A member of the RNA family "Glycine riboswitch aptamer" from Halarsenatibacter silvermanii, 107 nucleotides long. Its Rfam clan is "Glycine riboswitch clan". Lineage of the source: Bacteria > Bacillota > Clostridia > Halarsenatibacteraceae > Halarsenatibacter. Rfam links the family to the GO term glycine biosynthetic process. It scores 69 bits against the family's covariance model. From the family's description: This family represents the bacterial glycine riboswitch.
RNA sequence: UUGAAGGAGAUGGGAGAGUGCCGCCUCUGGCGGCCGCCGAAGGGGUAAGCCGGCUGUUUUUCUCGACGGUCGGUGAAACUCUCAGGCAGCAGGACCAUUUCCGGACA
Dot-bracket structure: .....((((((((......((((.......)))).(((((..(((...((((((((((......))))))))))....))))).))).......)))))))).....
Numbered sequence: 001u002u003g004a005a006g007g008a009g010a011u012g013g014g015a016g017a018g019u020g021c022c023g024c025c026u027c028u029g030g031c032g033g034c035c036g037c038c039g040a041a042g043g044g045g046u047a048a049g050c051c052g053g054c055u056g057u058u059u060u061u062c063u064c065g066a067c068g069g070u071c072g073g074u075g076a077a078a079c080u081c082u083c084a085g086g087c088a089g090c091a092g093g094a095c096c097a098u099u100u101c102c103g104g105a106c107a
Stems, first nucleotide, its partner, number of pairs: 006102008020034004036087003039083002043081003049074010